RNA sequence: UGCAAAGGAAGAACGGCUAAGAUCGCCACGUCCUGUGGCAACGCCGUUCUGACCCGCAUCCUGCGGG
Numbered sequence: 001u002g003c004a005a006a007g008g009a010a011g012a013a014c015g016g017c018u019a020a021g022a023u024c025g026c027c028a029c030g031u032c033c034u035g036u037g038g039c040a041a042c043g044c045c046g047u048u049c050u051g052a053c054c055c056g057c058a059u060c061c062u063g064c065g066g067g
Base pairs, nucleotide, nucleotide: 011049012048013047014046015045016044017043025039026038027037028036029035053067054066055065056064057063
RNA: Bacillaceae-1 RNA